[Rfam]
RNA sequence: CGUGUGGUGUCUGGCUUUGGAUCAGAUGGCGACACGGCCUUAACUGAGGU
Numbered sequence: 001c002g003u004g005u006g007g008u009g010u011c012u013g014g015c016u017u018u019g020g021a022u023c024a025g026a027u028g029g030c031g032a033c034a035c036g037g038c039c040u041u042a043a044c045u046g047a048g049g050u
Stems, first nucleotide, its partner, number of pairs: 001036005007030002011025004015020001
Notes: This 50-nucleotide RNA sequence from Paraferrimonas sedimenticola belongs to the Rfam family "L31-Gammaproteobacteria ribosomal protein leader". The family is grouped with related families in Rfam's "Ribosomal Protein L31 Leader clan". It is annotated as a cis-regulatory leader. On this family, see Eckert and Weinberg, BMC Microbiol 2020: "Discovery of 20 novel ribosomal leader candidates in bacteria and archaea". Lineage of the source: Bacteria > Pseudomonadota > Alteromonadales > Ferrimonadaceae > Paraferrimonas. Pairs were carried over by alignment from the consensus structure, which is taken from published work. A search with the family's covariance model found it, with a score of 62 bits.